RNA: Group II catalytic intron D1-D4-3
RNA sequence: GACCGAGCGUGGGGAGGAAGCGUGGAUCGAAACUGCGGGUCGAUGAACAAGAACCGGAUAUGAGGCGAUGCCGACCAGGGCGAGCGGGCAACGAACCGCGAAGCUCUCGUGACCAAGGGUCGGUGUCGUAAAUCCGGCGAUCGUGCAGCGAAGGAAUGCGUUC
Dot-bracket structure: ...................(.(((..((....((((((((((...........((((((.....(((.(((((((..((((..((((........))))...))))............))))))).)))..))))))))))).))))).....))...))).)